[Rfam]
RNA sequence: UGGAGAAGGGGAGCACGUGCAAACAGUUUAGAAAUGAAACAACUUGCACGUGCCCUGCUUCUCCAAC
Numbered sequence: 001u002g003g004a005g006a007a008g009g010g011g012a013g014c015a016c017g018u019g020c021a022a023a024c025a026g027u028u029u030a031g032a033a034a035u036g037a038a039a040c041a042a043c044u045u046g047c048a049c050g051u052g053c054c055c056u057g058c059u060u061c062u063c064c065a066a067c
Base pairs, nucleotide, nucleotide: 001065002064003063004062005061006060007059008058010056011055013053014052015051016050017049018048019047020046021045022044027033028032